[Rfam]
RNA sequence: UUCUCGUUCAAAGAAUCGCAUUCGAAGCACACAAACAGAGAGGUCCUUCGGGGCUUCUCAGCUGGCAACAGCUACAAUUGCUUUGGGAGAAAGUCCCCGGACACCCUUCAUCUAUGAAGGAUUGCGGAAACGCGCCGCCAUAGAAGCAGCACAGCGGCUUCUCUUCUUCCUAUUCUCUUUCACCACCUCCACCCUCUUGCACUGCACUCUCGCCGAGUUUGGGACCUUGACUCUUAGUUGGAGCAUGGAUGAAGAUAUGAGACCGAGCUCCUCGGCGACGUUUCUCGGGCCCGAAGCAAGUGGGUUUGUGGAAGGCAUUUGGACUGUUCUCGGCGUGAUUGGGAUGUUCUGGUCGUCGAGGUCUUUUCGUCGAGAUCGAUAGUUAUGCGAUUGCCUCUCUCGCUGCGCAAGUAGUGAGGGUGGUAACUCGAUGGGGCUUAUUCUUGAUGCGAGA
Numbered sequence: 001u002u003c004u005c006g007u008u009c010a011a012a013g014a015a016u017c018g019c020a021u022u023c024g025a026a027g028c029a030c031a032c033a034a035a036c037a038g039a040g041a042g043g044u045c046c047u048u049c050g051g052g053g054c055u056u057c058u059c060a061g062c063u064g065g066c067a068a069c070a071g072c073u074a075c076a077a078u079u080g081c082u083u084u085g086g087g088a089g090a091a092a093g094u095c096c097c098c099g100g101a102c103a104c105c106c107u108u109c110a111u112c113u114a115u116g117a118a119g120g121a122u123u124g125c126g127g128a129a130a131c132g133c134g135c136c137g138c139c140a141u142a143g144a145a146g147c148a149g150c151a152c153a154g155c156g157g158c159u160u161c162u163c164u165u166c167u168u169c170c171u172a173u174u175c176u177c178u179u180u181c182a183c184c185a186c187c188u189c190c191a192c193c194c195u196c197u198u199g200c201a202c203u204g205c206a207c208u209c210u211c212g213c214c215g216a217g218u219u220u221g222g223g224a225c226c227u228u229g230a231c232u233c234u235u236a237g238u239u240g241g242a243g244c245a246u247g248g249a250u251g252a253a254g255a256u257a258u259g260a261g262a263c264c265g266a267g268c269u270c271c272u273c274g275g276c277g278a279c280g281u282u283u284c285u286c287g288g289g290c291c292c293g294a295a296g297c298a299a300g301u302g303g304g305u306u307u308g309u310g311g312a313a314g315g316c317a318u319u320u321g322g323a324c325u326g327u328u329c330u331c332g333g334c335g336u337g338a339u340u341g342g343g344a345u346g347u348u349c350u351g352g353u354c355g356u357c358g359a360g361g362u363c364u365u366u367u368c369g370u371c372g373a374g375a376u377c378g379a380u381a382g383u384u385a386u387g388c389g390a391u392u393g394c395c396u397c398u399c400u401c402g403c404u405g406c407g408c409a410a411g412u413a414g415u416g417a418g419g420g421u422g423g424u425a426a427c428u429c430g431a432u433g434g435g436g437c438u439u440a441u442u443c444u445u446g447a448u449g450c451g452a453g454a
Stems, first nucleotide, its partner, number of pairs: 002454006008447004014392006022087001023085006038059009091439003095436004106119005323364001329360006338353006394423002397420009
This 454-nucleotide RNA from Rhynchosporium graminicola belongs to the Rfam family "RNase MRP". The source organism's lineage runs through Eukaryota, saccharomyceta, sordariomyceta, Helotiales and Rhynchosporium. RNase MRP is an enzymatically active ribonucleoprotein with two distinct roles in eukaryotes. In mitochondria it plays a direct role in the initiation of mitochondrial DNA replication. In the nucleus it is involved in precursor rRNA processing, where it cleaves the internal transcribed spacer 1 between 18S and 5.8S rRNAs. Despite distinct functions, RNase MRP has been shown to be evolutionarily related to RNase P. Like eukaryotic RNase P, RNase MRP is not catalytically active without associated protein subunits.